A member of the RNA family "Mycobacterium smegmatis small RNA 1" from Mycobacterium intermedium, 301 nucleotides long. The match comes from Rfam's covariance-model search (253 bits). Rfam links the family to the GO term RNA polymerase binding. Rfam describes the family as follows. Mycobacterium smegmatis small RNA 1 is highly expressed during stationary phase of growth.

RNA sequence: ACGGCAGCUCGGCAAGGCCAAGGGCGAUCCGGAAGAGAAGGAUCGUUCUCCCGACCCGAGCACCCAGCACGGUUCUCGGCACCCACGCGGAGUCAUAGCCGCGAUAAUGGCAGAAGUGUUGCGGGCCUGCGUAAUUGCGAAUAUCGGAAGGUGUCGACGGCCCUUUGGGUGGGGUUGCAGCCGGACGGUUCGUAAAAGCGCCGAGGCCAACCCACGCAGCCCAUAGGUGCACGCUUGGUAACCGGGAACCGUGCUGGCGGGCGGCGAUCCGAAAUCCUUCGGUCGCCGCCCGCUUUACGUU
Numbered sequence: 001a002c003g004g005c006a007g008c009u010c011g012g013c014a015a016g017g018c019c020a021a022g023g024g025c026g027a028u029c030c031g032g033a034a035g036a037g038a039a040g041g042a043u044c045g046u047u048c049u050c051c052c053g054a055c056c057c058g059a060g061c062a063c064c065c066a067g068c069a070c071g072g073u074u075c076u077c078g079g080c081a082c083c084c085a086c087g088c089g090g091a092g093u094c095a096u097a098g099c100c101g102c103g104a105u106a107a108u109g110g111c112a113g114a115a116g117u118g119u120u121g122c123g124g125g126c127c128u129g130c131g132u133a134a135u136u137g138c139g140a141a142u143a144u145c146g147g148a149a150g151g152u153g154u155c156g157a158c159g160g161c162c163c164u165u166u167g168g169g170u171g172g173g174g175u176u177g178c179a180g181c182c183g184g185a186c187g188g189u190u191c192g193u194a195a196a197a198g199c200g201c202c203g204a205g206g207c208c209a210a211c212c213c214a215c216g217c218a219g220c221c222c223a224u225a226g227g228u229g230c231a232c233g234c235u236u237g238g239u240a241a242c243c244g245g246g247a248a249c250c251g252u253g254c255u256g257g258c259g260g261g262c263g264g265c266g267a268u269c270c271g272a273a274a275u276c277c278u279u280c281g282g283u284c285g286c287c288g289c290c291c292g293c294u295u296u297a298c299g300u301u
Stems, first nucleotide, its partner, number of pairs: 003064002007061006016052002021049002025045006065256009076245004083238003087234003092230002098111003118220006124208005129201004135195006144188003150182003158177007257293011269282003